[Rfam]
Rfam assigns this 508-nucleotide RNA sequence from Streptomyces apricus to the family "Saccharopolyspora sRNA 350".
The match comes from Rfam's covariance-model search (166 bits).
The family's RNA type in Rfam is antisense RNA.
Taxonomically the source falls in Streptomyces (Bacteria, Actinomycetes, Kitasatosporales, Streptomycetaceae).
The family has 2 seed sequences and 1,170 matches in Rfam 15.1.
A reference for the family is Liu et al. (2013), "Prediction and characterization of small non-coding RNAs related to secondary metabolites in Saccharopolyspora erythraea", PLoS One.
Its family is annotated with regulation of secondary metabolite biosynthetic process in the Gene Ontology.

RNA sequence: CGGGCCGUGUACUCCCAGAUGGCGUCCGGGUCGAGGAUCGCCUGGUCGCCGAAGUAGGCGCCGUCGGCGAGGGUCCCGAGGGCCGCGUCGUCGCCGUACGGUCCGGUGCCGACCUUCUCGACCCUGCCGUGCGCGAGCAGGAACACCUCGUCGGCCGGGCUGCCGAAGGAGGUGAGGACGUCGCCCGGAGCGAACUCGCGCUGCUCGCAGCGCUGGGCCAGCUCCGCGAGCACCUCCUGGUCGUCGUAGGAGCGCAGCGCCGGCAGCUCGCCGAGCUCCGCCGGGAUGACCUGGACGCGGUCGCCCGUCUUCACGAACGUGAUGCGGCCGUCUCCGACGGAGUAGCUCAGCCUGCGGUUCACUCGGUACGUGCCGCCCUGCACGUUCACCCACGGCAGCAUGCGCAGCAGCCAUCGUGAGCUGAUCUCCUGCAUCUGUGGUGCGGACUUGGUGGUCGUGGCCAGGUUCCGCGCCGCGGAGGUGCCCAGACUCUUCUGCGGCUUGUCCU
Numbered sequence: 001c002g003g004g005c006c007g008u009g010u011a012c013u014c015c016c017a018g019a020u021g022g023c024g025u026c027c028g029g030g031u032c033g034a035g036g037a038u039c040g041c042c043u044g045g046u047c048g049c050c051g052a053a054g055u056a057g058g059c060g061c062c063g064u065c066g067g068c069g070a071g072g073g074u075c076c077c078g079a080g081g082g083c084c085g086c087g088u089c090g091u092c093g094c095c096g097u098a099c100g101g102u103c104c105g106g107u108g109c110c111g112a113c114c115u116u117c118u119c120g121a122c123c124c125u126g127c128c129g130u131g132c133g134c135g136a137g138c139a140g141g142a143a144c145a146c147c148u149c150g151u152c153g154g155c156c157g158g159g160c161u162g163c164c165g166a167a168g169g170a171g172g173u174g175a176g177g178a179c180g181u182c183g184c185c186c187g188g189a190g191c192g193a194a195c196u197c198g199c200g201c202u203g204c205u206c207g208c209a210g211c212g213c214u215g216g217g218c219c220a221g222c223u224c225c226g227c228g229a230g231c232a233c234c235u236c237c238u239g240g241u242c243g244u245c246g247u248a249g250g251a252g253c254g255c256a257g258c259g260c261c262g263g264c265a266g267c268u269c270g271c272c273g274a275g276c277u278c279c280g281c282c283g284g285g286a287u288g289a290c291c292u293g294g295a296c297g298c299g300g301u302c303g304c305c306c307g308u309c310u311u312c313a314c315g316a317a318c319g320u321g322a323u324g325c326g327g328c329c330g331u332c333u334c335c336g337a338c339g340g341a342g343u344a345g346c347u348c349a350g351c352c353u354g355c356g357g358u359u360c361a362c363u364c365g366g367u368a369c370g371u372g373c374c375g376c377c378c379u380g381c382a383c384g385u386u387c388a389c390c391c392a393c394g395g396c397a398g399c400a401u402g403c404g405c406a407g408c409a410g411c412c413a414u415c416g417u418g419a420g421c422u423g424a425u426c427u428c429c430u431g432c433a434u435c436u437g438u439g440g441u442g443c444g445g446a447c448u449u450g451g452u453g454g455u456c457g458u459g460g461c462c463a464g465g466u467u468c469c470g471c472g473c474c475g476c477g478g479a480g481g482u483g484c485c486c487a488g489a490c491u492c493u494u495c496u497g498c499g500g501c502u503u504g505u506c507c508u
Base pairs, nucleotide, nucleotide: 007389008388009387011385012384016380018328021325025322026321029318031316032315036312037311040308041307045305047303048302050300054233055232059228060227061226063224065111066110067109068108073103076101077100078099082097083096085094086093118221120219122217123216126213127212130209131206133204134203135202140197143196149192150191155188156187157186158185159184160183161178166173235295236294237293240290241289242288243287244286245285250282254278256277257276258275261270262269329342331340332339354376355375356374357373360372361371362370391431392430394428395427397425399423400422403418404417405416407415437476438475439474440473442471443470444469445468446467447465448464449463450462451461452460477507478506480502481501482500484499486497487496488495